RNA sequence: UUGCCCAUCGGGGCCUCGGAUACCUGCUCGCUUUUU
Numbered sequence: 001u002u003g004c005c006c007a008u009c010g011g012g013g014c015c016u017c018g019g020a021u022a023c024c025u026g027c028u029c030g031c032u033u034u035u036u
Stems, first nucleotide, its partner, number of pairs: 003014004017026003
This 36-nucleotide sequence from Sorex araneus belongs to the Rfam family "XIST RNA A repeat". NCBI's taxonomy places the organism under Eukaryota, Teleostomi, Sarcopterygii, Dipnotetrapodomorpha, Sorex. The family's consensus secondary structure was predicted with CMfinder. The family has 54 seed sequences and 900 matches in Rfam 15.1. On this family, see Duszczyk et al., RNA 2011: "The Xist RNA A-repeat comprises a novel AUCG tetraloop fold and a platform for multimerization".